The family of this 67-nucleotide sequence from Bacillus sp. MUM 13 is "Bacillaceae-1 RNA". NCBI's taxonomy places the organism under Bacteria, Bacillati, Bacillota, Bacilli, Bacillus. A search with the family's covariance model found it, with a score of 76 bits.
RNA sequence: UUAAAAGGAUCGAAGGCUAACUGCUCUGCAUCCUGCAGAAACGCCUUCAUGACCUGCUUCCUGCAGG
Number, nucleotide and partner (000 for none) at each position: 001u000002u000003a000004a000005a000006a000007g000008g000009a000010u000011c000012g048013a047014a046015g045016g044017c043018u000019a000020a000021c000022u000023g000024c000025u039026c038027u037028g036029c035030a000031u000032c000033c000034u000035g029036c028037a027038g026039a025040a000041a000042c000043g017044c016045c015046u014047u013048c012049a000050u000051g000052a000053c067054c066055u065056g064057c063058u000059u000060c000061c000062u000063g057064c056065a055066g054067g053